Record summary
Shown here is a 118-nucleotide RNA sequence from Lachnospiraceae bacterium oral taxon 500, a member of the family "FMN riboswitch aptamer (RFN element)".

Nucleotides: 118
Base pairs, nucleotide, nucleotide: 004115005114006113007112008111009110010109017029018028019027031098032097033088034087035048036047037046038045043086044085052063053062068084069083070082071081072080090101091100092099
Number, partner (000 for none) and nucleotide at each position: 001000a002000u003000g004115a005114u006113u007112c008111u009110u010109c011000g012000g013000g014000g015000c016000g017029g018028g019027g020000c021000g022000a023000a024000a025000u026000u027019c028018c029017c030000c031098a032097c033088c034087g035048g036047c037046a038045g039000u040000a041000u042000a043086g044085u045038c046037u047036g048035c049000g050000a051000c052063c053062u054000g055000c056000a057000u058000g059000g060000g061000c062053a063052g064000u065000u066000g067000a068084u069083u070082u071081g072080g073000u074000g075000a076000a077000a078000u079000u080072c081071c082070a083069a084068a085044a086043c087034c088033g089000a090101c091100a092099g093000u094000a095000u096000a097032g098031u099092c100091u101090g102000g103000a104000u105000g106000a107000g108000a109010g110009a111008a112007g113006a114005g115004u116000g117000u118000u
Its family is annotated with FMN binding in the Gene Ontology. Rfam 15.1 lists 6,230 matches to the family in 5,120 species. Lineage of the source: Bacteria > Clostridia > Lachnospirales > Lachnospiraceae > Lachnospiraceae bacterium oral taxon 500. The match comes from Rfam's covariance-model search (115 bits). The family's consensus secondary structure is taken from published work.